[Rfam]
Nucleotides: 102
Stems, first nucleotide, its partner, number of pairs: 018088008030048006058078007
Number, partner (000 for none) and nucleotide at each position: 001000a002000a003000a004000c005000a006000g007000a008000a009000c010000g011000a012000u013000g014000a015000c016000a017000a018088u019087c020086c021085u022084c023083a024082u025081a026000u027000a028000c029000u030048u031047u032046c033045g034044g035043g036000a037000a038000u039000a040000a041000g042000g043035c044034u045033c046032g047031a048030g049000c050000g051000u052000c053000u054000c055000u056000a057000c058078c059077c060076g061075g062074c063073a064072a065000c066000c067000g068000u069000a070000a071000a072064u073063u074062g075061c076060u077059g078058g079000a080000c081025u082024a083023u084022g085021a086020g087019g088018a089000g090000a091000a092000u093000g094000a095000u096000c097000a098000a099000a100000c101000g102000a
Annotation
The family of this 102-nucleotide RNA from Marinococcus luteus is "Purine riboswitch aptamer". The match comes from Rfam's covariance-model search (83 bits). The family has 133 seed sequences and 4,097 matches in Rfam 15.1. Pairs were carried over by alignment from the consensus structure, which is taken from published work. The family is grouped with related families in Rfam's "Purine riboswitches".